[Rfam]
RNA sequence: AGAAGAUGAUGAGUAACAAAUUGGUCCGUGUUUCUGAAACAAUCGUGACUGAUAAUCCAUUACCAAUCUCUGAUUCU
Numbered sequence: 001a002g003a004a005g006a007u008g009a010u011g012a013g014u015a016a017c018a019a020a021u022u023g024g025u026c027c028g029u030g031u032u033u034c035u036g037a038a039a040c041a042a043u044c045g046u047g048a049c050u051g052a053u054a055a056u057c058c059a060u061u062a063c064c065a066a067u068c069u070c071u072g073a074u075u076c077u
Base pairs, nucleotide, nucleotide: 001077002076003075004074

This 77-nucleotide RNA sequence from Macleaya cordata belongs to the Rfam family "Small nucleolar RNA SNORD18". It is annotated as a C/D-box small nucleolar RNA. Taxonomically the source falls in Macleaya (Eukaryota, Viridiplantae, Streptophytina, Embryophyta). Its Rfam clan is "SNORD18 clan". A reference for the family is Prislei et al. (1993), "Two different snoRNAs are encoded in introns of amphibian and human L1 ribosomal protein genes", Nucleic Acids Res.